[Rfam]
RNA sequence: UUGCCAAUGAUGUCCUGAGCACUGUACGGUCUGAGUUCUGGGUACAGGUGACAGAGUGUGUUCUAAGAACAGACAGAUCGGGCAA
Numbered sequence: 001u002u003g004c005c006a007a008u009g010a011u012g013u014c015c016u017g018a019g020c021a022c023u024g025u026a027c028g029g030u031c032u033g034a035g036u037u038c039u040g041g042g043u044a045c046a047g048g049u050g051a052c053a054g055a056g057u058g059u060g061u062u063c064u065a066a067g068a069a070c071a072g073a074c075a076g077a078u079c080g081g082g083c084a085a
Base pairs, nucleotide, nucleotide: 002084003083004082005081038047039046040045
A member of the RNA family "small Cajal body-specific RNA 18" from Chinchilla lanigera, 85 nucleotides long. Pairs were carried over by alignment from the consensus structure, which was predicted with PFOLD. NCBI's taxonomy places the organism under Eukaryota, Opisthokonta, Theria, Glires, Chinchilla. From the family's description: scaRNAs are a specific class of small nuclear RNAs which localise to the Cajal bodies and guide the modification of RNA polymerase II transcribed spliceosomal RNAs U1, U2, U4, U5 and U12. This C/D box domain U91 (also known as U4-8) was identified by Darzacq and is predicted to guide the 2'O-ribose methylation of U4 snRNA C8. The family has 20 seed sequences and 406 matches in Rfam 15.1. The literature on the family includes a 2002 paper in EMBO J by Darzacq et al., "Cajal body-specific small nuclear RNAs: a novel class of 2'-O-methylation and pseudouridylation guide RNAs".